This 86-nucleotide sequence from Solanum lycopersicum belongs to the Rfam family "Small nucleolar RNA U54". About the family: U54 is a C/D box small nucleolar RNA, which acts as a methylation guide for 18S ribosomal RNA in plants. The literature on the family includes a 2003 paper in Nucleic Acids Res by Chen et al., "The high diversity of snoRNAs in plants: identification and comparative study of 120 snoRNA genes from Oryza sativa". By type it is a C/D-box small nucleolar RNA. Gene Ontology terms of the family: RNA processing and nucleolus. Pairs were carried over by alignment from the consensus structure, which was predicted with PFOLD. Clan: U54 clan.

RNA sequence: AGCUCAAUGAUUGUAUGCCUUUUGGCAAUAUACGCUAUACCGAUCUAAAACAUGAGUAUGAUAAUUUUUUUUCUAGUAUGAGAGCU
Numbered sequence: 001a002g003c004u005c006a007a008u009g010a011u012u013g014u015a016u017g018c019c020u021u022u023u024g025g026c027a028a029u030a031u032a033c034g035c036u037a038u039a040c041c042g043a044u045c046u047a048a049a050a051c052a053u054g055a056g057u058a059u060g061a062u063a064a065u066u067u068u069u070u071u072u073c074u075a076g077u078a079u080g081a082g083a084g085c086u
Stems, first nucleotide, its partner, number of pairs: 001086005